[Rfam]
The family of this 84-nucleotide RNA from Hipposideros armiger is "mir-548 microRNA precursor family". The literature on the family includes a 2010 paper in Blood by Jima et al., "Deep sequencing of the small RNA transcriptome of normal and malignant human B cells identifies hundreds of novel microRNAs". Gene Ontology terms of the family: RISC complex and miRNA-mediated post-transcriptional gene silencing. Rfam 15.1 lists 3,009 matches to the family in 27 species. A search with the family's covariance model found it, with a score of 92 bits.
RNA sequence: UAUUAGGUUGGUGCAAAAGUAAUAGCGGUUUUUGCCGUUACGCCUAACAGCAAAAACAGCUAUUACUUUUGCACCAACCUAAUA
Number, nucleotide and partner (000 for none) at each position: 001u084002a083003u082004u081005a080006g079007g078008u077009u076010g075011g074012u073013g072014c071015a070016a069017a068018a067019g066020u065021a064022a063023u062024a061025g060026c059027g000028g057029u056030u055031u054032u053033u052034g051035c050036c000037g048038u047039u046040a045041c000042g000043c000044c000045u040046a039047a038048c037049a000050g035051c034052a033053a032054a031055a030056a029057c028058a000059g026060c025061u024062a023063u022064u021065a020066c019067u018068u017069u016070u015071g014072c013073a012074c011075c010076a009077a008078c007079c006080u005081a004082a003083u002084a001